[Rfam]
This 67-nucleotide RNA from Chauna torquata belongs to the Rfam family "Small nucleolar RNA SNORD58". snoRNA U58 is found in introns 1, 3 and 6 of the ribosomal protein RPL17 gene in humans. By type it is a C/D-box small nucleolar RNA. A reference for the family is Galardi et al. (2002), "Purified box C/D snoRNPs are able to reproduce site-specific 2'-O-methylation of target RNA in vitro", Mol Cell Biol.
RNA sequence: UGGCAGUGAUGACUAUCUUAGGACACCUUUGGAAUAACUGUGAAAUAUUAACUUCUUUCUGAGCCAU
Numbered sequence: 001u002g003g004c005a006g007u008g009a010u011g012a013c014u015a016u017c018u019u020a021g022g023a024c025a026c027c028u029u030u031g032g033a034a035u036a037a038c039u040g041u042g043a044a045a046u047a048u049u050a051a052c053u054u055c056u057u058u059c060u061g062a063g064c065c066a067u
Base pairs, nucleotide, nucleotide: 001066002065003064004063